This 93-nucleotide RNA sequence from Theobroma cacao belongs to the Rfam family "Small nucleolar RNA snoR8a". The base pairs follow the family's consensus structure, which was predicted with WAR. A reference for the family is Brown et al. (2001), "Multiple snoRNA gene clusters from Arabidopsis", RNA.

[Rfam]
RNA sequence: GAGUUAGAGAUAAUUUUAAAACUAAUUUCUCGUUUUGAUUUGCUCAAUUUGAACAUGAUAGACUCCUUAUUAUACCCAUAAAAUUUGAACUAU
Numbered sequence: 001g002a003g004u005u006a007g008a009g010a011u012a013a014u015u016u017u018a019a020a021a022c023u024a025a026u027u028u029c030u031c032g033u034u035u036u037g038a039u040u041u042g043c044u045c046a047a048u049u050u051g052a053a054c055a056u057g058a059u060a061g062a063c064u065c066c067u068u069a070u071u072a073u074a075c076c077c078a079u080a081a082a083a084u085u086u087g088a089a090c091u092a093u
Stems, first nucleotide, its partner, number of pairs: 003093002006091002